[Rfam]
RNA: Tetrahymena snoRNA TtnuHACA7
Organism: Tetrahymena thermophila
RNA sequence: CAAAGUAACUUAGGUUGAGGUUGAGCUUGCUCCCUCGCCCAAGAGUUAGCCAAUCUAUAUUCCUGCGCCCUGAACAUAACGGACCUAAUGGACCUGUUGGUCUUGGGCUAAACCAUAGGAAGGACAUCA
Numbered sequence: 001c002a003a004a005g006u007a008a009c010u011u012a013g014g015u016u017g018a019g020g021u022u023g024a025g026c027u028u029g030c031u032c033c034c035u036c037g038c039c040c041a042a043g044a045g046u047u048a049g050c051c052a053a054u055c056u057a058u059a060u061u062c063c064u065g066c067g068c069c070c071u072g073a074a075c076a077u078a079a080c081g082g083a084c085c086u087a088a089u090g091g092a093c094c095u096g097u098u099g100g101u102c103u104u105g106g107g108c109u110a111a112a113c114c115a116u117a118g119g120a121a122g123g124a125c126a127u128c129a
Stems, first nucleotide, its partner, number of pairs: 009119004013114004019051006026043004067108004074101002077099006084091002